[Rfam]
RNA: FMN riboswitch aptamer (RFN element)
Organism: Ralstonia pickettii
RNA sequence: GUACGUCUUCAGGGCGGGGUGAAAUUCCCCACCGGCGGUAUGCGGACCGUGUGUCCGUGAGCCCGCGAGCGCCUUGCAUGCGCCUGCAUGCAGGGGUCAGCAGAUCCGGUGAAAUGCCGGGGCCGACGGUCAGAGUCCGGAUGGAAGAAGAUGUGC
Numbered sequence: 001g002u003a004c005g006u007c008u009u010c011a012g013g014g015c016g017g018g019g020u021g022a023a024a025u026u027c028c029c030c031a032c033c034g035g036c037g038g039u040a041u042g043c044g045g046a047c048c049g050u051g052u053g054u055c056c057g058u059g060a061g062c063c064c065g066c067g068a069g070c071g072c073c074u075u076g077c078a079u080g081c082g083c084c085u086g087c088a089u090g091c092a093g094g095g096g097u098c099a100g101c102a103g104a105u106c107c108g109g110u111g112a113a114a115u116g117c118c119g120g121g122g123c124c125g126a127c128g129g130u131c132a133g134a135g136u137c138c139g140g141a142u143g144g145a146a147g148a149a150g151a152u153g154u155g156c
Base pairs, nucleotide, nucleotide: 003154004153005152006151007150008149009148010147017029018028019027031136032135033125034124035066036065037064038063061123062122069101070100105121106120107119108118109117127139128138129137